Small nucleolar RNA Z105: a 67-nucleotide RNA sequence from Eragrostis curvula. The match comes from Rfam's covariance-model search (68 bits). On this family, see Chen et al., Nucleic Acids Res 2003: "The high diversity of snoRNAs in plants: identification and comparative study of 120 snoRNA genes from Oryza sativa".
[Rfam]
RNA sequence: UUGGCAUGAUGAGGAAAGACAUUUGUGUCUGAUCGACUUGAUGCGAAACACCUCCUACUCAUUCUGA
Numbered sequence: 001u002u003g004g005c006a007u008g009a010u011g012a013g014g015a016a017a018g019a020c021a022u023u024u025g026u027g028u029c030u031g032a033u034c035g036a037c038u039u040g041a042u043g044c045g046a047a048a049c050a051c052c053u054c055c056u057a058c059u060c061a062u063u064c065u066g067a
Stems, first nucleotide, its partner, number of pairs: 006062004026045001029040001
Taxonomically the source falls in Eragrostis (Eukaryota, Viridiplantae, Mesangiospermae, Eragrostideae). The family has 11 seed sequences and 621 matches in Rfam 15.1. Pairs were carried over by alignment from the consensus structure, which was predicted with CMfinder. By type it is a C/D-box small nucleolar RNA.